[Rfam]
RNA sequence: GAUUUCCUUACAGCACCUCAUAAUCCAAUUAAACUGUUAAUAAUUCUGAAAAUACAAUUUGAAAUCUG
Numbered sequence: 001g002a003u004u005u006c007c008u009u010a011c012a013g014c015a016c017c018u019c020a021u022a023a024u025c026c027a028a029u030u031a032a033a034c035u036g037u038u039a040a041u042a043a044u045u046c047u048g049a050a051a052a053u054a055c056a057a058u059u060u061g062a063a064a065u066c067u068g
Stems, first nucleotide, its partner, number of pairs: 001066006
RNA: Class I RNA from Dictyostelium